Rfam assigns this 138-nucleotide RNA sequence from Paraburkholderia monticola to the family "Group II catalytic intron D1-D4-4". The family has 90 seed sequences and 840 matches in Rfam 15.1. Rfam describes the family as follows. Group II introns are found in rRNA, tRNA and mRNA of organelles in fungi, plants and protists, and also in mRNA in bacteria. The base pairs follow the family's consensus structure. The organism belongs to Paraburkholderia, within Bacteria. Gene Ontology term of the family: Group II intron splicing.
RNA sequence: GAGCGGGUGCAAGCGUCGCCCAGCAGCAGCUCCAACCGGAAGCAACCGGAGCAGCUAUGGAGGCAACGAAGUGGCUGAAGCCUUUGGUGAUGCGUGUCACGAAUUGGCGACAGCGCGAUUGUGCAGGCCGUAACUCGA
Numbered sequence: 001g002a003g004c005g006g007g008u009g010c011a012a013g014c015g016u017c018g019c020c021c022a023g024c025a026g027c028a029g030c031u032c033c034a035a036c037c038g039g040a041a042g043c044a045a046c047c048g049g050a051g052c053a054g055c056u057a058u059g060g061a062g063g064c065a066a067c068g069a070a071g072u073g074g075c076u077g078a079a080g081c082c083u084u085u086g087g088u089g090a091u092g093c094g095u096g097u098c099a100c101g102a103a104u105u106g107g108c109g110a111c112a113g114c115g116c117g118a119u120u121g122u123g124c125a126g127g128c129c130g131u132a133a134c135u136c137g138a
Stems, first nucleotide, its partner, number of pairs: 020039002023036001047086005052077006062067001095112004100107001115131003